[Rfam]
RNA sequence: GGACGGUGACGAUUUUAGUGAAAGGUCUCGUUCGUUGUAAUGGCGAAUCCACCUUGUGGACCAUCCUGCUAUAUCACCACCCAUUUUCCAAGUCC
Dot-bracket structure: ((((........................................((.......))....................................))))